[Rfam]
The family of this 73-nucleotide RNA sequence from Mycoplasma capricolum is "tRNA". The family is grouped with related families in Rfam's "tRNA clan". The family's consensus secondary structure is taken from published work. The family has 954 seed sequences and 5,335,975 matches in Rfam 15.1.
RNA sequence: GCGUAGGUGGUGAAGUGGUUAACACAUCAGGUUGUGGCUCUGACAUACGCGGGUUCGAUCCCCGUUCUACGCC
Numbered sequence: 001g002c003g004u005a006g007g008u009g010g011u012g013a014a015g016u017g018g019u020u021a022a023c024a025c026a027u028c029a030g031g032u033u034g035u036g037g038c039u040c041u042g043a044c045a046u047a048c049g050c051g052g053g054u055u056c057g058a059u060c061c062c063c064g065u066u067c068u069a070c071g072c073c
Stems, first nucleotide, its partner, number of pairs: 001072007010025003027043005049065005